About this RNA
The record is a 36-nucleotide sequence, which matches "DUF805b RNA" in Rfam. The family's RNA type in Rfam is cis-regulatory element. The base pairs follow the family's consensus structure, which is taken from published work. Rfam's curators put it in the seed alignment.
RNA sequence: AAGGCAGAACCCGAAAAGCCUGUAAAAGAGUAGAAA
Numbered sequence: 001a002a003g004g005c006a007g008a009a010c011c012c013g014a015a016a017a018g019c020c021u022g023u024a025a026a027a028g029a030g031u032a033g034a035a036a
Stems, first nucleotide, its partner, number of pairs: 002021004012033001